This 147-nucleotide RNA sequence from Paenibacillus aquistagni belongs to the Rfam family "SAM riboswitch aptamer (S box leader)". The match comes from Rfam's covariance-model search (82 bits). Gene Ontology term of the family: regulation of gene expression.
RNA sequence: UUCUUAUCCAGAGAGGCGGAGGGACAGGCCCGAUGAAGCCCGGCAACCGAUCGUGCGAGCCCGGACAUGCAUUACUGCAAUGCAUGCUUGCACGGUGACUAUGGUGCUAAUUCCUUCAAGACACGUAUGUGUCUUGGCAGAUGAGAA
Number, nucleotide and partner (000 for none) at each position: 001u147002u146003c145004u144005u143006a142007u141008c140009c000010a000011g000012a000013g041014a000015g040016g039017c038018g000019g000020a000021g031022g030023g029024a000025c000026a115027g114028g113029c023030c022031c021032g000033a000034u000035g000036a000037a000038g017039c016040c015041c013042g108043g107044c106045a105046a000047c104048c103049g100050a000051u098052c097053g096054u095055g000056c000057g000058a000059g000060c000061c000062c000063g000064g000065a000066c000067a000068u000069g000070c000071a000072u000073u000074a000075c000076u000077g000078c000079a000080a000081u000082g000083c000084a000085u000086g000087c000088u000089u000090g000091c000092a000093c000094g000095g054096u053097g052098a051099c000100u049101a000102u000103g048104g047105u045106g044107c043108u042109a000110a000111u000112u139113c028114c027115u026116u000117c136118a135119a134120g133121a132122c131123a000124c000125g000126u000127a000128u000129g000130u000131g122132u121133c120134u119135u118136g117137g000138c000139a112140g008141a007142u006143g005144a004145g003146a002147a001